A member of the RNA family "Small nucleolar RNA SNORD22" from Myripristis murdjan, 128 nucleotides long. On this family, see Tycowski et al., Science 1994: "Requirement for intron-encoded U22 small nucleolar RNA in 18S ribosomal RNA maturation". Taxonomically the source falls in Myripristis (Eukaryota, Clupeocephala, Acanthomorphata, Holocentriformes).

RNA sequence: UCUGUGUGAUGACACCCGCACGCGUCUUACGCCCUGUGUAAAUGCCAGAACCUGAAAAGGUGAACCCACUGGCGUUGCCUUGGCAAUAAGGUGAAGACCCGUUGGGGUUACCAACAGUCUGAAUGGAA
Numbered sequence: 001u002c003u004g005u006g007u008g009a010u011g012a013c014a015c016c017c018g019c020a021c022g023c024g025u026c027u028u029a030c031g032c033c034c035u036g037u038g039u040a041a042a043u044g045c046c047a048g049a050a051c052c053u054g055a056a057a058a059g060g061u062g063a064a065c066c067c068a069c070u071g072g073c074g075u076u077g078c079c080u081u082g083g084c085a086a087u088a089a090g091g092u093g094a095a096g097a098c099c100c101g102u103u104g105g106g107g108u109u110a111c112c113a114a115c116a117g118u119c120u121g122a123a124u125g126g127a128a
Stems, first nucleotide, its partner, number of pairs: 001127004